[Rfam]
RNA sequence: UUUAAGGGGCUCCUCAUUGUGCAUGCUGUGUGUAUUCUUGUUACUAUCGCACAGCGCCUGCAAUGUGGAGGCCGAGACA
Numbered sequence: 001u002u003u004a005a006g007g008g009g010c011u012c013c014u015c016a017u018u019g020u021g022c023a024u025g026c027u028g029u030g031u032g033u034a035u036u037c038u039u040g041u042u043a044c045u046a047u048c049g050c051a052c053a054g055c056g057c058c059u060g061c062a063a064u065g066u067g068g069a070g071g072c073c074g075a076g077a078c079a
Stems, first nucleotide, its partner, number of pairs: 012068002015065007024056001026054006
The family of this 79-nucleotide sequence from Menidia menidia is "mir-460 microRNA precursor family". Its family is annotated with RISC complex and miRNA-mediated post-transcriptional gene silencing in the Gene Ontology. Taxonomically the source falls in Menidia (Eukaryota, Bilateria, Atherinomorphae, Atheriniformes). The literature on the family includes a 2006 paper in FEBS Lett by Xu et al., "Identification of microRNAs from different tissues of chicken embryo and adult chicken". The match comes from Rfam's covariance-model search (62 bits).